[Rfam]
RNA sequence: GAUGCACACAAAACCCAAAGAUUGUUAUACUUCUAUGUAAUUAUCUUGUCUAGUGUGCAAAUAUUAGUCGUACCUUGUCGCCUUUCAUUAGUUGAUGUGCCAAUGAAAGUGAAAUCAAGGUUCUACACAC
Numbered sequence: 001g002a003u004g005c006a007c008a009c010a011a012a013a014c015c016c017a018a019a020g021a022u023u024g025u026u027a028u029a030c031u032u033c034u035a036u037g038u039a040a041u042u043a044u045c046u047u048g049u050c051u052a053g054u055g056u057g058c059a060a061a062u063a064u065u066a067g068u069c070g071u072a073c074c075u076u077g078u079c080g081c082c083u084u085u086c087a088u089u090a091g092u093u094g095a096u097g098u099g100c101c102a103a104u105g106a107a108a109g110u111g112a113a114a115u116c117a118a119g120g121u122u123c124u125a126c127a128c129a130c
Stems, first nucleotide, its partner, number of pairs: 003059007020045003024041006070123001072121005082109008091100002